[Rfam]
RNA sequence: GAGUUGUUUUCUGUGGCGAGGCUAAGGAGUUCAACUCCGGAGCCAUAGCGAAAGCAACAUGCCCGCAGCCUCUUCGUGAGGUCAGGGGCGAGGUGUGAAAGCACCUGGAGUCACAGGGAUCAGACCCGAAACCAGGCGAUCUAGCCCAGGGCAGGGUGAAGCCAAUCCUCGGAUUGGUGGAGGCCCGAACCGUUUCUGCCGUUCAAUGCGAUCGGAUGACUUUGGGCUAGGGGUGAAAGGCCAAUCUAGCCUGGCAACAGCUGGUU
Numbered sequence: 001g002a003g004u005u006g007u008u009u010u011c012u013g014u015g016g017c018g019a020g021g022c023u024a025a026g027g028a029g030u031u032c033a034a035c036u037c038c039g040g041a042g043c044c045a046u047a048g049c050g051a052a053a054g055c056a057a058c059a060u061g062c063c064c065g066c067a068g069c070c071u072c073u074u075c076g077u078g079a080g081g082u083c084a085g086g087g088g089c090g091a092g093g094u095g096u097g098a099a100a101g102c103a104c105c106u107g108g109a110g111u112c113a114c115a116g117g118g119a120u121c122a123g124a125c126c127c128g129a130a131a132c133c134a135g136g137c138g139a140u141c142u143a144g145c146c147c148a149g150g151g152c153a154g155g156g157u158g159a160a161g162c163c164a165a166u167c168c169u170c171g172g173a174u175u176g177g178u179g180g181a182g183g184c185c186c187g188a189a190c191c192g193u194u195u196c197u198g199c200c201g202u203u204c205a206a207u208g209c210g211a212u213c214g215g216a217u218g219a220c221u222u223u224g225g226g227c228u229a230g231g232g233g234u235g236a237a238a239g240g241c242c243a244a245u246c247u248a249g250c251c252u253g254g255c256a257a258c259a260g261c262u263g264g265u266u
Base pairs, nucleotide, nucleotide: 005122006121008119009118010117011116012115013114014113015112016111017110020044021043022042023041026038027037028036029035048055049054061089062088063087064086068082069081070080071079092105093104094103095102125264126263128261132254133253134252135251136250137249141230142229143228144227145226146225147224148223149222150221151220152218154186155185156184157183161178162177163176164175165174166173167172190215191214192213195211196210198209199208232242233241234240
RNA: Archaeal large subunit ribosomal RNA, nucleotides 673 to 938
Organism: candidate division MSBL1 archaeon SCGC-AAA382K21